[Rfam]
RNA sequence: AAGGUUUGCAGCUCUUUGCUAUUUGUCUAGCAGGUUCUCUCUGAGUGGGAGCCACU
Numbered sequence: 001a002a003g004g005u006u007u008g009c010a011g012c013u014c015u016u017u018g019c020u021a022u023u024u025g026u027c028u029a030g031c032a033g034g035u036u037c038u039c040u041c042u043g044a045g046u047g048g049g050a051g052c053c054a055c056u
Base pairs, nucleotide, nucleotide: 033053034052035051036050037049038048039047041045
Background
The family of this 56-nucleotide sequence from Hymenochirus boettgeri is "U7 small nuclear RNA". The base pairs follow the family's consensus structure, which was predicted with PFOLD. Rfam's curators write: Animal histone pre-mRNAs are spliced by a different mechanism than nuclear pre-mRNAs and self-splicing introns. This processing involves the U7 snRNP, which contains only one RNA species: U7. The 5' end of U7 RNA is thought to base-pair to a conserved spacer element downstream of the cleavage site in histone pre-mRNA. This family contains a number of annotated U7 pseudogenes.